[Rfam]
RNA sequence: CGUGAGGCAAGAGUCACUCCUGGACAUUACUCUGUUGGCCCGGUGUGCUAUAGACCUCGCAGAGAAAAUGUCUUUGCUUAUUCGUUGACUGGAUCCUGCCGUAGUCCCGUCAACCACCAGCUCAGAUACACUA
Numbered sequence: 001c002g003u004g005a006g007g008c009a010a011g012a013g014u015c016a017c018u019c020c021u022g023g024a025c026a027u028u029a030c031u032c033u034g035u036u037g038g039c040c041c042g043g044u045g046u047g048c049u050a051u052a053g054a055c056c057u058c059g060c061a062g063a064g065a066a067a068a069u070g071u072c073u074u075u076g077c078u079u080a081u082u083c084g085u086u087g088a089c090u091g092g093a094u095c096c097u098g099c100c101g102u103a104g105u106c107c108c109g110u111c112a113a114c115c116a117c118c119a120g121c122u123c124a125g126a127u128a129c130a131c132u133a
Base pairs, nucleotide, nucleotide: 002060003059004058005057006056008053012049013048015047016046017045019043020042023039025037026036072125073124076121077120078119084114085113086112087111088110091107092106093105094104
Small nucleolar RNA SNORA3/SNORA45 family: a 133-nucleotide sequence from Takifugu rubripes. Clan: SNORA3 clan. The family's consensus secondary structure was predicted with RNAalifold. Rfam describes the family as follows. The members of this family belong to the H/ACA class of snoRNAs which are thought to guide the sites of modification of uridines to pseudouridines. It scores 58 bits against the family's covariance model.